[Rfam]
The record is a 258-nucleotide RNA, which matches "Hairpin ribozyme 2 from viruses-like metatranscriptomes" in Rfam.
RNA sequence: UAAAUAGGGAAUUGUUACCUAGGGUUGUCCGUGGAACCGGGAAAUUUGGUGCCCGAGGGGUCCCAAGUCUGCAUCAAUCGGCCGAAUUGCGUAAGACCGACGGCAGGGUACAUCUUUGAGAGUGCUGUCGCAAGGGGACGUGCAAAUCCGGAGAAUGGGGUGGAACUCCUCUGAAAUCUGGUGCGCUUCAUUCCACGGGAAACCCAAACAAGAUGAAACACGCAUUCAGUUGUCGCGUUUGCGGUAUAUUAUUCUUGA
Number, nucleotide and partner (000 for none) at each position: 001u000002a000003a000004a000005u021006a020007g019008g018009g000010a000011a000012u000013u000014g000015u000016u000017a000018c008019c007020u006021a005022g205023g204024g203025u202026u000027g000028u000029c000030c197031g196032u195033g194034g193035a192036a191037c000038c055039g054040g053041g052042a000043a000044a000045u000046u000047u000048g000049g000050u000051g000052c041053c040054c039055g038056a000057g000058g000059g000060g139061u138062c137063c136064c135065a000066a000067g000068u000069c000070u000071g000072c000073a000074u000075c000076a000077a000078u100079c099080g098081g097082c000083c000084g000085a000086a000087u000088u000089g000090c000091g000092u000093a000094a000095g000096a000097c081098c080099g079100a078101c130102g129103g128104c127105a126106g125107g000108g000109u000110a000111c000112a000113u000114c000115u000116u000117u000118g000119a000120g000121a000122g000123u000124g000125c106126u105127g104128u103129c102130g101131c000132a000133a000134g000135g064136g063137g062138a061139c060140g000141u000142g000143c000144a000145a000146a000147u000148c000149c000150g000151g000152a000153g000154a000155a000156u000157g000158g000159g000160g000161u000162g000163g000164a000165a000166c000167u000168c000169c000170u000171c000172u000173g000174a000175a000176a000177u000178c000179u000180g000181g000182u000183g000184c000185g000186c000187u000188u000189c000190a000191u036192u035193c034194c033195a032196c031197g030198g000199g000200a000201a000202a025203c024204c023205c022206a000207a000208a000209c000210a256211a255212g254213a253214u000215g000216a000217a000218a000219c000220a000221c243222g242223c241224a240225u000226u000227c237228a000229g000230u000231u000232g000233u000234c000235g000236c000237g227238u000239u000240u224241g223242c222243g221244g000245u000246a000247u000248a000249u000250u000251a000252u000253u213254c212255u211256u210257g000258a000
Hairpin-meta ribozymes were recognised in metatranscriptomic sequences of viruses-like organisms, it was proved by co-transcriptional assays that hairpin-meta1 and hairpin-meta2 non-coding RNA (ncRNAs) are catalytically active and it is suggested that they likely replicate as circular single-stranded RNAs.